RNA sequence: GCGUCCGCCUCCUGGGACGCCGACCCCGAUCGGCACCGUCCCCGCUACCCUGGCCAGGUGCGCCAUCCUGCCGGAAGGCGCAAAGCCGACAGCCGUCGCAUCCCAGGGAGUACAUUCCAUG
Numbered sequence: 001g002c003g004u005c006c007g008c009c010u011c012c013u014g015g016g017a018c019g020c021c022g023a024c025c026c027c028g029a030u031c032g033g034c035a036c037c038g039u040c041c042c043c044g045c046u047a048c049c050c051u052g053g054c055c056a057g058g059u060g061c062g063c064c065a066u067c068c069u070g071c072c073g074g075a076a077g078g079c080g081c082a083a084a085g086c087c088g089a090c091a092g093c094c095g096u097c098g099c100a101u102c103c104c105a106g107g108g109a110g111u112a113c114a115u116u117c118c119a120u121g
Stems, first nucleotide, its partner, number of pairs: 059082004064077001066075002085099002088097003

The record is a 121-nucleotide RNA sequence, which matches "Streptomyces-metH RNA" in Rfam. The family's RNA type in Rfam is small RNA.